[Rfam]
RNA sequence: GGCCCAUUAAUUGCUGAUCUACCGCUACCCAGGGCUAUCAACGUCGACAGCCCACAAAACUUCACGACAAAGGCGCCGU
Number, nucleotide and partner (000 for none) at each position: 001g000002g000003c000004c000005c000006a000007u000008u000009a000010a000011u000012u000013g000014c000015u000016g000017a000018u000019c000020u000021a000022c000023c000024g000025c000026u000027a000028c000029c000030c000031a000032g052033g051034g000035c050036u049037a000038u047039c046040a000041a000042c000043g000044u000045c000046g039047a038048c000049a036050g035051c033052c032053c000054a000055c000056a000057a000058a000059a000060c000061u000062u000063c000064a000065c000066g000067a000068c000069a000070a000071a000072g000073g000074c000075g000076c000077c000078g000079u000